[Rfam]
RNA sequence: AUGGAGGAACCGAAAAUCCCAAAUAGAGUAGGAA
Numbered sequence: 001a002u003g004g005a006g007g008a009a010c011c012g013a014a015a016a017u018c019c020c021a022a023a024u025a026g027a028g029u030a031g032g033a034a
Stems, first nucleotide, its partner, number of pairs: 003019003010032002

About this RNA: A member of the RNA family "DUF805b RNA", 34 nucleotides long. The family's consensus secondary structure is taken from published work. The sequence is in the family's curated seed alignment. By type it is a cis-regulatory element.